[Rfam]
RNA sequence: GCAGGCUCAAGGCCGCGAUUGCUCGCUACCCACAGAACCUCCCGAGGUUCGAAUUCGCGAGCGGGCUAAGGUCUGAGUAUUCCAAUCUUCCCUUUCGAUCGGUUCUAGCCGGACCCGGCGGUAACUCGCACGAGCGACGUAUCAGAAAAACACCCAGUCUCCAGUAGUUCCCAAAGACCCUCGGCUUCUCUUCUUUCGGGAGGAGGGGUGCGGGGAGAGGGCGGACGACGCGGGUAUGGAAUUCGUCGUGAAGAUCGGGCUCGGCGCGCUCUGGUUGCUGCUAUCCUCCCCCUUCGUCGGAGGGAGGGAGAUGCGCGGUGCUGAUGGGACGCUGGGCUCUUGAGCUCACUUCGCGGCUCGCUUGGGAUUCUACGGGAUCCCUGUUGACUGUUUAUCCUGAUCGUCGAUUCCUUUGGAAGAGAUUUGAGAGGGUGCGGUUGGCGAAACUCGAUUCAGACUACUCUUUGUCUGC
Numbered sequence: 001g002c003a004g005g006c007u008c009a010a011g012g013c014c015g016c017g018a019u020u021g022c023u024c025g026c027u028a029c030c031c032a033c034a035g036a037a038c039c040u041c042c043c044g045a046g047g048u049u050c051g052a053a054u055u056c057g058c059g060a061g062c063g064g065g066c067u068a069a070g071g072u073c074u075g076a077g078u079a080u081u082c083c084a085a086u087c088u089u090c091c092c093u094u095u096c097g098a099u100c101g102g103u104u105c106u107a108g109c110c111g112g113a114c115c116c117g118g119c120g121g122u123a124a125c126u127c128g129c130a131c132g133a134g135c136g137a138c139g140u141a142u143c144a145g146a147a148a149a150a151c152a153c154c155c156a157g158u159c160u161c162c163a164g165u166a167g168u169u170c171c172c173a174a175a176g177a178c179c180c181u182c183g184g185c186u187u188c189u190c191u192u193c194u195u196u197c198g199g200g201a202g203g204a205g206g207g208g209u210g211c212g213g214g215g216a217g218a219g220g221g222c223g224g225a226c227g228a229c230g231c232g233g234g235u236a237u238g239g240a241a242u243u244c245g246u247c248g249u250g251a252a253g254a255u256c257g258g259g260c261u262c263g264g265c266g267c268g269c270u271c272u273g274g275u276u277g278c279u280g281c282u283a284u285c286c287u288c289c290c291c292c293u294u295c296g297u298c299g300g301a302g303g304g305a306g307g308g309a310g311a312u313g314c315g316c317g318g319u320g321c322u323g324a325u326g327g328g329a330c331g332c333u334g335g336g337c338u339c340u341u342g343a344g345c346u347c348a349c350u351u352c353g354c355g356g357c358u359c360g361c362u363u364g365g366g367a368u369u370c371u372a373c374g375g376g377a378u379c380c381c382u383g384u385u386g387a388c389u390g391u392u393u394a395u396c397c398u399g400a401u402c403g404u405c406g407a408u409u410c411c412u413u414u415g416g417a418a419g420a421g422a423u424u425u426g427a428g429a430g431g432g433u434g435c436g437g438u439u440g441g442c443g444a445a446a447c448u449c450g451a452u453u454c455a456g457a458c459u460a461c462u463c464u465u466u467g468u469c470u471g472c
Base pairs, nucleotide, nucleotide: 001472002471003470004469009464012357013356014355015354016353017352018351021062022061023060024059025058035050036049037048038047039046040045073456074455075454076453077452087253088252089251090250101115102114103113104112105111118129119128120127121126134249135248136247137246138245139244154234155233358444359443360442361441362440364438
This 472-nucleotide sequence from Pterulicium gracile belongs to the Rfam family "Nuclear RNase P". Rfam classes the family as a ribozyme. A search with the family's covariance model found it, with a score of 56 bits. About the family: Ribonuclease P (RNase P) is a ubiquitous endoribonuclease, found in archaea, bacteria and eukarya as well as chloroplasts and mitochondria. Its best characterised activity is the generation of mature 5'-ends of tRNAs by cleaving the 5'-leader elements of precursor-tRNAs. The organism belongs to Pterulicium, within Eukaryota. For this family Rfam cites "Phylogenetic-comparative analysis of the eukaryal ribonuclease P RNA" (Frank et al., RNA, 2000).